[Rfam]
RNA sequence: UCCGAGGGAAGCUCACCGCCGAGGCCACGCACCGGGUGCACGUCACCCACCCGUGCCUCGGGGAAGGUCUGAGGAAGGGCCCGUGACGGCCCUAACAGGGCCCCGUCCGCGCGCGGGCGGGUGAGCCACCAGCAAGGGGGGGCGCCGCGGCGGUCGGCCCGGGCAGGAGAAGCCGCAGGCGGGUGGCGCUGCCUCCCCGUCCCGGCGGAUGCUCAUGGCCCCGCGGCGCUGUGAGACAGACUCACGGCCGGCACUGCUGAGUCCAAUGGGUGAGGUGGGGCACGGCCCCACAACCCAAUUCAGACUACUCUCCCUCGGA
Numbered sequence: 001u002c003c004g005a006g007g008g009a010a011g012c013u014c015a016c017c018g019c020c021g022a023g024g025c026c027a028c029g030c031a032c033c034g035g036g037u038g039c040a041c042g043u044c045a046c047c048c049a050c051c052c053g054u055g056c057c058u059c060g061g062g063g064a065a066g067g068u069c070u071g072a073g074g075a076a077g078g079g080c081c082c083g084u085g086a087c088g089g090c091c092c093u094a095a096c097a098g099g100g101c102c103c104c105g106u107c108c109g110c111g112c113g114c115g116g117g118c119g120g121g122u123g124a125g126c127c128a129c130c131a132g133c134a135a136g137g138g139g140g141g142g143c144g145c146c147g148c149g150g151c152g153g154u155c156g157g158c159c160c161g162g163g164c165a166g167g168a169g170a171a172g173c174c175g176c177a178g179g180c181g182g183g184u185g186g187c188g189c190u191g192c193c194u195c196c197c198c199g200u201c202c203c204g205g206c207g208g209a210u211g212c213u214c215a216u217g218g219c220c221c222c223g224c225g226g227c228g229c230u231g232u233g234a235g236a237c238a239g240a241c242u243c244a245c246g247g248c249c250g251g252c253a254c255u256g257c258u259g260a261g262u263c264c265a266a267u268g269g270g271u272g273a274g275g276u277g278g279g280g281c282a283c284g285g286c287c288c289c290a291c292a293a294c295c296c297a298a299u300u301c302a303g304a305c306u307a308c309u310c311u312c313c314c315u316c317g318g319a
Base pairs, nucleotide, nucleotide: 001319002318003317004316007313008312009311012274013273014272015271016270017269020060021059022058023057024056034048035047036046037045038044069303070302071301072300073299078249079248080247081246088102089101090100091099092098103120104119105118106117107116108115121245122244123243124242125241127239141230142229143228144227145226146225147224148223149222150221275291276290277289278288279287280286281285
RNA: Nuclear RNase P
Organism: Crypturellus soui